[Rfam]
RNA sequence: GGCUGACCACCGCCCAAUCGCCGCGAGGCGAGCCGGGGAACCAGGUUUGUGGGGUGAAUCCGCACUACGCGGUAGGGAUCGCUUCCGUCCCGAACCCGUCAGCUAACCCGGUCGGCGGACAACCGGAAGGACUA
Numbered sequence: 001g002g003c004u005g006a007c008c009a010c011c012g013c014c015c016a017a018u019c020g021c022c023g024c025g026a027g028g029c030g031a032g033c034c035g036g037g038g039a040a041c042c043a044g045g046u047u048u049g050u051g052g053g054g055u056g057a058a059u060c061c062g063c064a065c066u067a068c069g070c071g072g073u074a075g076g077g078a079u080c081g082c083u084u085c086c087g088u089c090c091c092g093a094a095c096c097c098g099u100c101a102g103c104u105a106a107c108c109c110g111g112u113c114g115g116c117g118g119a120c121a122a123c124c125g126g127a128a129g130g131a132c133u134a
Stems, first nucleotide, its partner, number of pairs: 011117004018031005032112006042051002052097003060072004075091004